Shown here is a 72-nucleotide RNA sequence from Weissella cibaria, a member of the family "tRNA".
Taxonomically the source falls in Weissella (Bacteria, Bacillati, Bacillota, Bacilli).
Transfer RNA (tRNA) molecules are approximately 80 nucleotides in length.
[Rfam]
RNA sequence: UGCUUUGUAGUUCAGCGGUAGAAUAGCUCACUGUUAAUGAGAAGGUCGCUGGUUCGAUCCCAGCCAGAGCAG
Number, nucleotide and partner (000 for none) at each position: 001u071002g070003c069004u068005u067006u066007g065008u000009a000010g024011u023012u022013c021014a000015g000016c000017g000018g000019u000020a000021g013022a012023a011024u010025a000026g000027c041028u040029c039030a038031c000032u000033g000034u000035u000036a000037a000038u030039g029040a028041g027042a000043a000044g000045g000046u000047c000048g064049c063050u062051g061052g060053u000054u000055c000056g000057a000058u000059c000060c052061c051062a050063g049064c048065c007066a006067g005068a004069g003070c002071a001072g000